RNA sequence: UAUUUUCGCCGCUCGAUAAUCACAAGGUUAUCAACAUACAUAAAAAUCAUUUAAAUAAUAUUGGCAUG
Number, nucleotide and partner (000 for none) at each position: 001u000002a000003u000004u000005u000006u000007c000008g000009c000010c000011g000012c000013u000014c000015g032016a031017u030018a029019a028020u000021c000022a000023c000024a000025a000026g000027g000028u019029u018030a017031u016032c015033a000034a000035c000036a000037u000038a000039c000040a000041u000042a000043a000044a000045a000046a000047u000048c000049a000050u000051u000052u000053a000054a000055a000056u000057a000058a000059u000060a000061u000062u000063g000064g000065c000066a000067u000068g000
RNA: S15-Flavobacteria ribosomal protein leader